[Rfam]
RNA sequence: CGUAUGGUGUAAGGUGGCUUGCGGGCCGACGUUAUGGCGAUACGGCUUCUGACAGAGGU
Numbered sequence: 001c002g003u004a005u006g007g008u009g010u011a012a013g014g015u016g017g018c019u020u021g022c023g024g025g026c027c028g029a030c031g032u033u034a035u036g037g038c039g040a041u042a043c044g045g046c047u048u049c050u051g052a053c054a055g056a057g058g059u
Stems, first nucleotide, its partner, number of pairs: 001044005007038002011033002014030002
Notes:
The family of this 59-nucleotide sequence from Actinobacillus succinogenes is "L31-Gammaproteobacteria ribosomal protein leader". Its Rfam clan is "Ribosomal Protein L31 Leader clan". By type it is a cis-regulatory leader. Pairs were carried over by alignment from the consensus structure, which is taken from published work. The literature on the family includes a 2020 paper in BMC Microbiol by Eckert and Weinberg, "Discovery of 20 novel ribosomal leader candidates in bacteria and archaea". Rfam's curators put it in the seed alignment. Taxonomically the source falls in Actinobacillus succinogenes (Bacteria, Pseudomonadota, Pasteurellaceae, Actinobacillus).